The record is a 124-nucleotide RNA from Rhynchophorus ferrugineus, which matches "U4atac minor spliceosomal RNA" in Rfam. U4atac is an essential component of the minor U12-type spliceosome complex which is required for removal of the rarer class of eukaryotic introns (AT-AC, U12-type). Clan: U4 clan. The source organism's lineage runs through Eukaryota, Bilateria, Panarthropoda, Allotriocarida and Rhynchophorus.
RNA sequence: UUCUUCCUUGUCUAGGGGAGCUUAGUAUUCAAUGAUCGUCUAGUGAGAGUACUUUUGCUGACACCCUAUUAUUUUUUACCGCACCCACUUCCUAAAUAAGGUUGUGAGUGCAAUUUUUGGAAGU
Numbered sequence: 001u002u003c004u005u006c007c008u009u010g011u012c013u014a015g016g017g018g019a020g021c022u023u024a025g026u027a028u029u030c031a032a033u034g035a036u037c038g039u040c041u042a043g044u045g046a047g048a049g050u051a052c053u054u055u056u057g058c059u060g061a062c063a064c065c066c067u068a069u070u071a072u073u074u075u076u077u078a079c080c081g082c083a084c085c086c087a088c089u090u091c092c093u094a095a096a097u098a099a100g101g102u103u104g105u106g107a108g109u110g111c112a113a114u115u116u117u118u119g120g121a122a123g124u
Base pairs, nucleotide, nucleotide: 005019006018007017008016009015020058021057024053025052026051027050028049029048030047037043081111082110083109084108086106087102088101089100090099

On this family, see Lorkovic et al., RNA 2005: "Evolutionary conservation of minor U12-type spliceosome between plants and humans".
The match comes from Rfam's covariance-model search (87 bits).